[Rfam]
The record is a 121-nucleotide sequence from Halopseudomonas xinjiangensis, which matches "Pseudomon-1/ErsA RNA" in Rfam.
The match comes from Rfam's covariance-model search (78 bits).
The base pairs follow the family's consensus structure, which is taken from published work.
Rfam classes the family as a small RNA.
Rfam's curators write: Functions to regulate the AlgC enzyme.
Its family is annotated with mRNA binding, positive regulation of translation, ncRNA-mediated and response to antibiotic in the Gene Ontology.
The source organism's lineage runs through Bacteria, Pseudomonadota, Pseudomonadales, Pseudomonadaceae and Halopseudomonas.
RNA sequence: UUGCUCCUUAGAUGUGAUUUAGUGUUGGCAGAAAACCGGGCAACCCUUUCCUAGCACAGCCCGGUCGUUAAGCCCCGAACCUUCCCUCCCCAUAGAAGUUCGGGGUUUUUUUUGCCUGCGA
Numbered sequence: 001u002u003g004c005u006c007c008u009u010a011g012a013u014g015u016g017a018u019u020u021a022g023u024g025u026u027g028g029c030a031g032a033a034a035a036c037c038g039g040g041c042a043a044c045c046c047u048u049u050c051c052u053a054g055c056a057c058a059g060c061c062c063g064g065u066c067g068u069u070a071a072g073c074c075c076c077g078a079a080c081c082u083u084c085c086c087u088c089c090c091c092a093u094a095g096a097a098g099u100u101c102g103g104g105g106u107u108u109u110u111u112u113u114g115c116c117u118g119c120g121a
Stems, first nucleotide, its partner, number of pairs: 035065007070109003073105008082096001
Dot-bracket structure: ..................................(((((((.................)))))))....(((((((((((.(.............).)))))))).)))............